Notes
The family of this 100-nucleotide RNA from Amphibacillus marinus is "Bacillaceae-1 RNA". The base pairs follow the family's consensus structure, which is taken from published work. By type it is a small RNA. Taxonomically the source falls in Amphibacillus (Bacteria, Bacillati, Caryophanales, Bacillaceae).
RNA sequence: GUGGGGGGAUCUUAGACUAAAUCCGUCACGUCCUGGGACUGGGAUUACUCGUCCACCAAAAACAUUUGUGACAACAUCUAACUAACUUACAUCCUGUAGG
Number, nucleotide and partner (000 for none) at each position: 001g000002u000003g000004g000005g000006g000007g000008g000009a000010u000011c000012u081013u080014a079015g078016a077017c000018u000019a000020a000021a000022u000023c000024c000025g072026u071027c070028a069029c068030g000031u000032c000033c000034u000035g000036g000037g000038a000039c000040u000041g000042g000043g000044a000045u000046u000047a000048c000049u000050c000051g000052u000053c000054c000055a000056c000057c000058a000059a000060a000061a000062a000063c000064a000065u000066u000067u000068g029069u028070g027071a026072c025073a000074a000075c000076a000077u016078c015079u014080a013081a012082c000083u000084a000085a000086c100087u099088u098089a097090c096091a000092u000093c000094c000095u000096g090097u089098a088099g087100g086